[Rfam]
RNA: sok antitoxin (CssrC)
RNA sequence: GGGUGCUUGAGACUGUUUGUCUCAGGUAUCACCGAAAGGCAGACAGAGAAAAGCCCCACCUGACUAUAAAUCAAAGUGAGGCUACCCUAUGCCUGAACACCAUAAGGUUAGCCUCUUACUCGUUGGAAAUCAACACAGUGUAUG
Numbered sequence: 001g002g003g004u005g006c007u008u009g010a011g012a013c014u015g016u017u018u019g020u021c022u023c024a025g026g027u028a029u030c031a032c033c034g035a036a037a038g039g040c041a042g043a044c045a046g047a048g049a050a051a052a053g054c055c056c057c058a059c060c061u062g063a064c065u066a067u068a069a070a071u072c073a074a075a076g077u078g079a080g081g082c083u084a085c086c087c088u089a090u091g092c093c094u095g096a097a098c099a100c101c102a103u104a105a106g107g108u109u110a111g112c113c114u115c116u117u118a119c120u121c122g123u124u125g126g127a128a129a130u131c132a133a134c135a136c137a138g139u140g141u142a143u144g
Base pairs, nucleotide, nucleotide: 001057002056003055005054006053007052008051013046014045015044016043017042018041019040020039021038022037026033058077059076061074062072063071065069078115079114080113081112082111084108085107086106088104089103090102091101120138